[Rfam]
RNA sequence: AGAAAAGCAGCUCUUAACAAUUGAGGAUGAAGCAUUGUUAAGAGC
Numbered sequence: 001a002g003a004a005a006a007g008c009a010g011c012u013c014u015u016a017a018c019a020a021u022u023g024a025g026g027a028u029g030a031a032g033c034a035u036u037g038u039u040a041a042g043a044g045c
Base pairs, nucleotide, nucleotide: 011044012043013042014041015040017038018037019036

Annotation
Rfam assigns this 45-nucleotide RNA sequence from Enterococcus saccharolyticus to the family "uup RNA". Lineage of the source: Bacteria > Bacillati > Enterococcaceae > Enterococcus > Enterococcus saccharolyticus subsp. saccharolyticus. Rfam classes the family as a cis-regulatory element. The match comes from Rfam's covariance-model search (41 bits).